[Rfam]
RNA sequence: AAGUACCUCCGAGUCCUCUGACGAGGAUAGGAGUAACGGCUGGUUGGCACAGCCAGCGGUUCGUCUGUUCGAUACUACGGAUGGGCAGUUCCUUCCACAAGAACAGGUGGCCCGCGAACCUUAAUAUCCCAAACGCGGUCGGGAAUCCUCGCCCUUCAGGGCGGGGA
Number, nucleotide and partner (000 for none) at each position: 001a000002a000003g037004u036005a000006c000007c033008u032009c031010c030011g000012a000013g028014u027015c026016c025017u024018c023019u000020g000021a000022c000023g018024a017025g016026g015027a014028u013029a000030g010031g009032a008033g007034u000035a000036a004037c003038g054039g053040c052041u051042g050043g000044u000045u000046g000047g000048c000049a000050c042051a041052g040053c039054c038055a000056g000057c114058g113059g112060u000061u110062c109063g000064u107065c106066u105067g104068u103069u102070c101071g000072a000073u000074a000075c000076u000077a000078c000079g000080g000081a000082u000083g096084g095085g094086c000087a000088g000089u000090u000091c000092c000093u000094u085095c084096c083097a000098c000099a000100a000101g070102a069103a068104c067105a066106g065107g064108u000109g062110g061111c000112c059113c058114g057115c000116g000117a000118a000119c000120c000121u000122u000123a000124a000125u000126a000127u144128c143129c142130c141131a000132a000133a139134c138135g000136c000137g000138g134139u133140c000141g130142g129143g128144a127145a000146u167147c166148c165149u164150c163151g162152c161153c160154c159155u000156u000157c000158a000159g154160g153161g152162c151163g150164g149165g148166g147167a146

Sense overlapping transcript RNA 0042 (sot): a 167-nucleotide sequence from Halococcus morrhuae. For this family Rfam cites "Sense overlapping transcripts in IS1341-type transposase genes are functional non-coding RNAs in archaea" (Gomes-Filho et al., RNA Biol, 2015). It is associated with IS1341-type transposase (tnpB) genes, at the 3'-end in H. salinarum NRC-1.